[Rfam]
RNA sequence: CGGCGGGAAAGGCCGGGGAGCCAGCCCUUCCCUCCACCCGAAACGGGCUUCAUGCGGGGGCCGGAUAACCCGCGAGGGCGCGUGCGACCGGCCCGUUACUCGGCUGCGGGAAGGCGAUGAGGAUGCGCCGGAUGGGGGCGUCGUAGACGGGUAAAGCCUCUGUAGGGAGGCUCCAACCGUCGCAUGCGUCGAACCGUGUCAGGCCCGGGAGGGAGCAGCACUAAGACGCAGCGACGCAGCCCAUCCACAAGCGUGUCCGAGCAUGCCCGCAGCUUGAGUGCGGGUGCGGGUCCUCGCCACCUCGGGGGGCCGCCG
Numbered sequence: 001c002g003g004c005g006g007g008a009a010a011g012g013c014c015g016g017g018g019a020g021c022c023a024g025c026c027c028u029u030c031c032c033u034c035c036a037c038c039c040g041a042a043a044c045g046g047g048c049u050u051c052a053u054g055c056g057g058g059g060g061c062c063g064g065a066u067a068a069c070c071c072g073c074g075a076g077g078g079c080g081c082g083u084g085c086g087a088c089c090g091g092c093c094c095g096u097u098a099c100u101c102g103g104c105u106g107c108g109g110g111a112a113g114g115c116g117a118u119g120a121g122g123a124u125g126c127g128c129c130g131g132a133u134g135g136g137g138g139c140g141u142c143g144u145a146g147a148c149g150g151g152u153a154a155a156g157c158c159u160c161u162g163u164a165g166g167g168a169g170g171c172u173c174c175a176a177c178c179g180u181c182g183c184a185u186g187c188g189u190c191g192a193a194c195c196g197u198g199u200c201a202g203g204c205c206c207g208g209g210a211g212g213g214a215g216c217a218g219c220a221c222u223a224a225g226a227c228g229c230a231g232c233g234a235c236g237c238a239g240c241c242c243a244u245c246c247a248c249a250a251g252c253g254u255g256u257c258c259g260a261g262c263a264u265g266c267c268c269g270c271a272g273c274u275u276g277a278g279u280g281c282g283g284g285u286g287c288g289g290g291u292c293c294u295c296g297c298c299a300c301c302u303c304g305g306g307g308g309g310c311c312g313c314c315g
Stems, first nucleotide, its partner, number of pairs: 001315006011062004015033006037058004042053001069308003073304005080297003084292001091285006098279004102274009112264001114262002121258008130246007138237007146181005152175001155172007186229005196221004204213003
The record is a 315-nucleotide sequence from Candidatus Caldarchaeum subterraneum, which matches "Archaeal signal recognition particle RNA" in Rfam.
The literature on the family includes a 2011 paper in Nat Struct Mol Biol by Hainzl et al., "Structural basis of signal-sequence recognition by the signal recognition particle".
It is annotated as a non-coding RNA gene.
NCBI's taxonomy places the organism under Archaea, Thermoproteati, Candidatus Caldarchaeales, Candidatus Caldarchaeaceae, Candidatus Caldarchaeum.